About this RNA: Shown here is a 212-nucleotide sequence from Streptomyces sp. AVP053U2, a member of the family "Actinobacteria sRNA Ms_IGR-5". Pairs were carried over by alignment from the consensus structure. Rfam classes the family as a small RNA. NCBI's taxonomy places the organism under Bacteria, Actinomycetes, Kitasatosporales, Streptomycetaceae, Streptomyces. A search with the family's covariance model found it, with a score of 66 bits.
[Rfam]
RNA sequence: AUUCCGGAAAGGAGGUGGUUCGGCAGAUGUACGCAUACCGGACGGAAGAGGUGGCUGCGGGCCAGUAGCCCGUCGCCGUACUCGGUUCGGCGCCGGACCAGCGUGUGUGAGGCACGCGACCGGCCCAAUCCAACGCAGUCGCCCGACCCGCGAGUCGCCGGUACGUCCGGCCGGCCCCUCCUCCGGAGGGCCGGGCUCGCGGGUCGUCUGCG
Numbered sequence: 001a002u003u004c005c006g007g008a009a010a011g012g013a014g015g016u017g018g019u020u021c022g023g024c025a026g027a028u029g030u031a032c033g034c035a036u037a038c039c040g041g042a043c044g045g046a047a048g049a050g051g052u053g054g055c056u057g058c059g060g061g062c063c064a065g066u067a068g069c070c071c072g073u074c075g076c077c078g079u080a081c082u083c084g085g086u087u088c089g090g091c092g093c094c095g096g097a098c099c100a101g102c103g104u105g106u107g108u109g110a111g112g113c114a115c116g117c118g119a120c121c122g123g124c125c126c127a128a129u130c131c132a133a134c135g136c137a138g139u140c141g142c143c144c145g146a147c148c149c150g151c152g153a154g155u156c157g158c159c160g161g162u163a164c165g166u167c168c169g170g171c172c173g174g175c176c177c178c179u180c181c182u183c184c185g186g187a188g189g190g191c192c193g194g195g196c197u198c199g200c201g202g203g204u205c206g207u208c209u210g211c212g
Base pairs, nucleotide, nucleotide: 015058016057017056018055019054060125061124062123063122065120066119068117069116144206145205146204147203148202149201150200151199152198153197154196155195156194157175158174159173160172161171162170